[Rfam]
RNA sequence: CAGUGUGAGGCAAACCUACUAGAUAAAGAGUUAGAAAUCUAUAGCUAGGAUAGGCAGCAUAAAGAGAAAUUGAGAUGUUGAAACCUAUCAACAAACUUAUCGAAAAGAUAAGAGCGAAUUAUCAUGCCGCAGUGAAA
Numbered sequence: 001c002a003g004u005g006u007g008a009g010g011c012a013a014a015c016c017u018a019c020u021a022g023a024u025a026a027a028g029a030g031u032u033a034g035a036a037a038u039c040u041a042u043a044g045c046u047a048g049g050a051u052a053g054g055c056a057g058c059a060u061a062a063a064g065a066g067a068a069a070u071u072g073a074g075a076u077g078u079u080g081a082a083a084c085c086u087a088u089c090a091a092c093a094a095a096c097u098u099a100u101c102g103a104a105a106a107g108a109u110a111a112g113a114g115c116g117a118a119u120u121a122u123c124a125u126g127c128c129g130c131a132g133u134g135a136a137a
Stems, first nucleotide, its partner, number of pairs: 020041005049089005055080006064071002096112006114130003
RNA: Group II catalytic intron D1-D4-4
Organism: Orientia tsutsugamushi